[Rfam]
RNA sequence: AUCGUUCAUCUUAUUGAUUAAGUGAGACGGAAGUAGGUUAGGGAACCGAAGGAACGCUGU
Numbered sequence: 001a002u003c004g005u006u007c008a009u010c011u012u013a014u015u016g017a018u019u020a021a022g023u024g025a026g027a028c029g030g031a032a033g034u035a036g037g038u039u040a041g042g043g044a045a046c047c048g049a050a051g052g053a054a055c056g057c058u059g060u
Base pairs, nucleotide, nucleotide: 003056004055005054006053007052009027010026011025012024013023014022015021030057036047037046038045
The family of this 60-nucleotide RNA is "Glutamine riboswitch aptamer (glnA leader)". A reference for the family is Ames and Breaker (2011), "Bacterial aptamers that selectively bind glutamine", RNA Biol. The sequence is in the family's curated seed alignment.